[Rfam]
RNA sequence: CUGCAGUGAUGACUCUCUUAGGACACCUUUGGAGAAACCAUGAAAAGAACUUUAUAUACUGAGCAGU
Numbered sequence: 001c002u003g004c005a006g007u008g009a010u011g012a013c014u015c016u017c018u019u020a021g022g023a024c025a026c027c028u029u030u031g032g033a034g035a036a037a038c039c040a041u042g043a044a045a046a047g048a049a050c051u052u053u054a055u056a057u058a059c060u061g062a063g064c065a066g067u
Stems, first nucleotide, its partner, number of pairs: 001066004
Rfam assigns this 67-nucleotide RNA from Hymenochirus boettgeri to the family "Small nucleolar RNA SNORD58". The base pairs follow the family's consensus structure, which was predicted with PFOLD. Clan: SNORD58 clan. Rfam links the family to the GO terms RNA processing and nucleolus. From the family's description: snoRNA U58 is found in introns 1, 3 and 6 of the ribosomal protein RPL17 gene in humans. A reference for the family is Galardi et al. (2002), "Purified box C/D snoRNPs are able to reproduce site-specific 2'-O-methylation of target RNA in vitro", Mol Cell Biol. It is annotated as a C/D-box small nucleolar RNA.